[Rfam]
RNA sequence: CGGUGAGGUAGAGGUUGCAGCUUUUAUUAGUAGGUCGGAAGAGAUACAGAGACUAUCCAUGACUCCUUCUGAAAGGAAAGGCUGCCGAAGCGUGUAUCUUUCUCUGAAGAUACACGCUGGGGCUGUUUUCGAAUAGAAACAGAACUGUCACGGUUAACAUUCGUUAAUCGUGUUGAGCUAUCUUACGG
Numbered sequence: 001c002g003g004u005g006a007g008g009u010a011g012a013g014g015u016u017g018c019a020g021c022u023u024u025u026a027u028u029a030g031u032a033g034g035u036c037g038g039a040a041g042a043g044a045u046a047c048a049g050a051g052a053c054u055a056u057c058c059a060u061g062a063c064u065c066c067u068u069c070u071g072a073a074a075g076g077a078a079a080g081g082c083u084g085c086c087g088a089a090g091c092g093u094g095u096a097u098c099u100u101u102c103u104c105u106g107a108a109g110a111u112a113c114a115c116g117c118u119g120g121g122g123c124u125g126u127u128u129u130c131g132a133a134u135a136g137a138a139a140c141a142g143a144a145c146u147g148u149c150a151c152g153g154u155u156a157a158c159a160u161u162c163g164u165u166a167a168u169c170g171u172g173u174u175g176a177g178c179u180a181u182c183u184u185a186c187g188g
Stems, first nucleotide, its partner, number of pairs: 006183006017085009033070002037066003089118012119146002123142007149172008

Source information:
The family of this 188-nucleotide RNA from Niallia endozanthoxylica is "Lysine riboswitch aptamer". The match comes from Rfam's covariance-model search (124 bits). The organism belongs to Niallia, within Bacteria. Rfam describes the family as follows. Riboswitches are metabolite binding domains within certain messenger RNAs that serve as precision sensors for their corresponding targets. Allosteric rearrangement of mRNA structure is mediated by ligand binding, and this results in modulation of gene expression. This family includes riboswitches that sense lysine in a number of genes involved in lysine metabolism, including lysC.